[Rfam]
RNA sequence: ACCUGUCACGAGGUGCCCGCGCGGGCGCUCGCGACAUCAAGACACACACCGUGCUGCGGGAAGAACGCGGCACUUCAGGGCGUU
Numbered sequence: 001a002c003c004u005g006u007c008a009c010g011a012g013g014u015g016c017c018c019g020c021g022c023g024g025g026c027g028c029u030c031g032c033g034a035c036a037u038c039a040a041g042a043c044a045c046a047c048a049c050c051g052u053g054c055u056g057c058g059g060g061a062a063g064a065a066c067g068c069g070g071c072a073c074u075u076c077a078g079g080g081c082g083u084u
Base pairs, nucleotide, nucleotide: 004036005035006034007033009031010030011029013028014027015026016025017024051073052072053071054070055069056068057067058066